[Rfam]
RNA sequence: CCCUCUAGCUGCUUCCCGGUGCCCGGCCGGUCGGCGCCCUGGCUUUCUUCCCCGUAGCCAGGUCGCCCACCGGAAGGGGACCGGGGAGCAGCUCCACACACAA
Numbered sequence: 001c002c003c004u005c006u007a008g009c010u011g012c013u014u015c016c017c018g019g020u021g022c023c024c025g026g027c028c029g030g031u032c033g034g035c036g037c038c039c040u041g042g043c044u045u046u047c048u049u050c051c052c053c054g055u056a057g058c059c060a061g062g063u064c065g066c067c068c069a070c071c072g073g074a075a076g077g078g079g080a081c082c083g084g085g086g087a088g089c090a091g092c093u094c095c096a097c098a099c100a101c102a103a
Base pairs, nucleotide, nucleotide: 010090011089012088013087014086015085016084018082019081022078023077024076027073028072029071030070031069033067034066035065036064038062039061040060041059042058043057044056
The family of this 103-nucleotide sequence from Tessaracoccus oleiagri is "mraW RNA". The family's consensus secondary structure is taken from published work. The source organism's lineage runs through Bacteria, Bacillati, Actinomycetota, Propionibacteriales and Tessaracoccus.